[Rfam]
RNA sequence: UCGGUUCCGGUUCACGCUGCGCUCCGCCUGGAGGCCGCGACCCGGCGACC
Numbered sequence: 001u002c003g004g005u006u007c008c009g010g011u012u013c014a015c016g017c018u019g020c021g022c023u024c025c026g027c028c029u030g031g032a033g034g035c036c037g038c039g040a041c042c043c044g045g046c047g048a049c050c
Stems, first nucleotide, its partner, number of pairs: 003050003007045004015039003019035002022033004
RNA: L31-Actinobacteria ribosomal protein leader